[Rfam]
RNA: 6S / SsrS RNA
Organism: Gaiella sp. SCGC AG-212-M14
RNA sequence: AGCGGCCGACCCUGUUCGUGGCUGCGCAUUCAAUGUAGAACCAACAAAGACGCUAAGGGAGCUUCUGUCCGGCCAAGGCUUUUGCCGGAAGUCGGCAAGGCACCCACCUGGCUAUCCAGGUUCACAGCGGGCGCAGUCACGGCAGGGUGGGUCGCUG
Numbered sequence: 001a002g003c004g005g006c007c008g009a010c011c012c013u014g015u016u017c018g019u020g021g022c023u024g025c026g027c028a029u030u031c032a033a034u035g036u037a038g039a040a041c042c043a044a045c046a047a048a049g050a051c052g053c054u055a056a057g058g059g060a061g062c063u064u065c066u067g068u069c070c071g072g073c074c075a076a077g078g079c080u081u082u083u084g085c086c087g088g089a090a091g092u093c094g095g096c097a098a099g100g101c102a103c104c105c106a107c108c109u110g111g112c113u114a115u116c117c118a119g120g121u122u123c124a125c126a127g128c129g130g131g132c133g134c135a136g137u138c139a140c141g142g143c144a145g146g147g148u149g150g151g152u153c154g155c156u157g
Base pairs, nucleotide, nucleotide: 002155003154004153005152006151007150009148010147011146012145013144014143015142017141018140019139034126035125036124038123039122040121041120042119057105058104059103061101062100063099064098068095069088070087071086072085073084